[Rfam]
RNA sequence: GAGGCGGAACGGGCCCCUCUGGCGUUCUCGCGGUCUGGCGUCCCCCUUCCUUGCGCCGGAUCGUGCGACGCGAUGUCGGACCGCAAGG
Numbered sequence: 001g002a003g004g005c006g007g008a009a010c011g012g013g014c015c016c017c018u019c020u021g022g023c024g025u026u027c028u029c030g031c032g033g034u035c036u037g038g039c040g041u042c043c044c045c046c047u048u049c050c051u052u053g054c055g056c057c058g059g060a061u062c063g064u065g066c067g068a069c070g071c072g073a074u075g076u077c078g079g080a081c082c083g084c085a086a087g088g
Stems, first nucleotide, its partner, number of pairs: 006082002010078003022071005029065013
The record is an 88-nucleotide RNA, which matches "terC RNA" in Rfam. The sequence is in the family's curated seed alignment.